[Rfam]
RNA sequence: GUUAAGGGGGUUGUUGUCUGGCUCGGUGUCUCCGGUCGGGAUCGAUUGAUAUCUUCCGGCCUUGCCGGAGCUGUCGACCGGAGAUUUCGGACCAGGCUUCAAUCCCUUUAAC
Numbered sequence: 001g002u003u004a005a006g007g008g009g010g011u012u013g014u015u016g017u018c019u020g021g022c023u024c025g026g027u028g029u030c031u032c033c034g035g036u037c038g039g040g041a042u043c044g045a046u047u048g049a050u051a052u053c054u055u056c057c058g059g060c061c062u063u064g065c066c067g068g069a070g071c072u073g074u075c076g077a078c079c080g081g082a083g084a085u086u087u088c089g090g091a092c093c094a095g096g097c098u099u100c101a102a103u104c105c106c107u108u109u110a111a112c
Base pairs, nucleotide, nucleotide: 001112002111003110004109005108006107007106008105009104010103011102012101013100016097017096018095019094020093021092024089025088026087